The record is a 104-nucleotide RNA from Nocardia panacis, which matches "Glycine riboswitch aptamer" in Rfam. The source organism's lineage runs through Bacteria, Bacillati, Actinomycetota, Nocardiaceae and Nocardia.
RNA sequence: AGAGUCGUCGCGGGAGAGUUCACGCGUAGGGAAGUUCACCUGCGCGGGACGCCGAAGGAGCAAACUCCCCGGAAUCUCUCAGGUACAGGUACCGCAUCGACCAG
Dot-bracket structure: .....((..((((......((.(((((((..........))))))).)).(((((..(((....(.....)....))))).))).......))))..)).....